Glycine riboswitch aptamer: a 94-nucleotide sequence from Sphingomonas sp. HMWF008. A search with the family's covariance model found it, with a score of 66 bits. The family has 44 seed sequences and 9,425 matches in Rfam 15.1. NCBI's taxonomy places the organism under Bacteria, Pseudomonadati, Pseudomonadota, Sphingomonadales, Sphingomonas.
RNA sequence: UAGGCACGCGCGGGAGAGACCCUGGACCUGGAUCCAGGGCGCCGAAGGAGCAACCGCCCCGGAAUCUCUCAGGCCACCGGACCGCGCGGGCUAU
Numbered sequence: 001u002a003g004g005c006a007c008g009c010g011c012g013g014g015a016g017a018g019a020c021c022c023u024g025g026a027c028c029u030g031g032a033u034c035c036a037g038g039g040c041g042c043c044g045a046a047g048g049a050g051c052a053a054c055c056g057c058c059c060c061g062g063a064a065u066c067u068c069u070c071a072g073g074c075c076a077c078c079g080g081a082c083c084g085c086g087c088g089g090g091c092u093a094u
Stems, first nucleotide, its partner, number of pairs: 007088007020039007041074003044070002048068003054062002